[Rfam]
RNA sequence: CUACUACGGGCGCACGGUGGAUGCCUUGGCGCCUGGAGCCGAUGAAGGGCGUGGCAUAGCUGCGAUAAGCCGCGGUGAGGGGCUGAGCACCCGCUAGCAGCCGCGGAUGCCCGAAUGGGGAAACCCACCGCUAUGGCGGUACCCGGGACAACCGGGAGGCAAGUCGGGGAACUGAAACAUCUCAGUACCCGGAGGAGAAGAGACCAUUCCCCAAGUAGUGGCGAACGAAAGGGGAACAGCCCAAACCCAUCCAAGCUCAGUGGGCCGCCGCCCUAAGCUUGGUGGGGGUUGUGGCGUCGCACGGACCGGACGGCGGUGCCGGUCGGGAAGUUACCAAGCUUGUGUCUAGCGGAAGCGGUCUGGAAAGGCCCACCACAGGGGGUGAUAGUCCCGUACGCGAAAGGCGCAGGCCUUCCUGGUGCGACGGCCGGAGUACCACGGUGGAAGUGGAACCGCCGUGGGAAGCAGGGUGGACCACCAUCCAAGGCUAAAUACUCCAGGCGACCGAUAGCGCACUAGUACCGUGAGGGAAAGGUGAAAAGCACCCCGGCGAGGGGAGUGAAAUAGAGCCUGAAACCGUGCGCUCACAAG
Numbered sequence: 001c002u003a004c005u006a007c008g009g010g011c012g013c014a015c016g017g018u019g020g021a022u023g024c025c026u027u028g029g030c031g032c033c034u035g036g037a038g039c040c041g042a043u044g045a046a047g048g049g050c051g052u053g054g055c056a057u058a059g060c061u062g063c064g065a066u067a068a069g070c071c072g073c074g075g076u077g078a079g080g081g082g083c084u085g086a087g088c089a090c091c092c093g094c095u096a097g098c099a100g101c102c103g104c105g106g107a108u109g110c111c112c113g114a115a116u117g118g119g120g121a122a123a124c125c126c127a128c129c130g131c132u133a134u135g136g137c138g139g140u141a142c143c144c145g146g147g148a149c150a151a152c153c154g155g156g157a158g159g160c161a162a163g164u165c166g167g168g169g170a171a172c173u174g175a176a177a178c179a180u181c182u183c184a185g186u187a188c189c190c191g192g193a194g195g196a197g198a199a200g201a202g203a204c205c206a207u208u209c210c211c212c213a214a215g216u217a218g219u220g221g222c223g224a225a226c227g228a229a230a231g232g233g234g235a236a237c238a239g240c241c242c243a244a245a246c247c248c249a250u251c252c253a254a255g256c257u258c259a260g261u262g263g264g265c266c267g268c269c270g271c272c273c274u275a276a277g278c279u280u281g282g283u284g285g286g287g288g289u290u291g292u293g294g295c296g297u298c299g300c301a302c303g304g305a306c307c308g309g310a311c312g313g314c315g316g317u318g319c320c321g322g323u324c325g326g327g328a329a330g331u332u333a334c335c336a337a338g339c340u341u342g343u344g345u346c347u348a349g350c351g352g353a354a355g356c357g358g359u360c361u362g363g364a365a366a367g368g369c370c371c372a373c374c375a376c377a378g379g380g381g382g383u384g385a386u387a388g389u390c391c392c393g394u395a396c397g398c399g400a401a402a403g404g405c406g407c408a409g410g411c412c413u414u415c416c417u418g419g420u421g422c423g424a425c426g427g428c429c430g431g432a433g434u435a436c437c438a439c440g441g442u443g444g445a446a447g448u449g450g451a452a453c454c455g456c457c458g459u460g461g462g463a464a465g466c467a468g469g470g471u472g473g474a475c476c477a478c479c480a481u482c483c484a485a486g487g488c489u490a491a492a493u494a495c496u497c498c499a500g501g502c503g504a505c506c507g508a509u510a511g512c513g514c515a516c517u518a519g520u521a522c523c524g525u526g527a528g529g530g531a532a533a534g535g536u537g538a539a540a541a542g543c544a545c546c547c548c549g550g551c552g553a554g555g556g557g558a559g560u561g562a563a564a565u566a567g568a569g570c571c572u573g574a575a576a577c578c579g580u581g582c583g584c585u586c587a588c589a590a591g
Base pairs, nucleotide, nucleotide: 008586009585010584011583012582013581014580015579016578017577023571024535025534028506029505030503031502032501033500034499035498036497037496038495039159040158047112048111049110050064051063052062070106071105072104073103074102075101076100079092080091081090117126118125119124127140128139129138130137131136142156143155144154145153146152164192165191166190167189168188174181175180207492208235209234210233211232212231218226219225238489239488240487241486246286247285248284249283250282251281293429294428295427298423299422300421301420302419336413338411339410340409341408342407343406344405345404346403347402349398350397351396355371357370358369359368360367374378380392381391382390436461437460438459439458440457441456442455443454444453468483469482470481471480472479522529523528545557546556547555548554
Shown here is a 591-nucleotide part of an RNA from Thermobaculum terrenum, a member of the family "Bacterial large subunit ribosomal RNA". Its family is annotated with ribosome and structural constituent of ribosome in the Gene Ontology.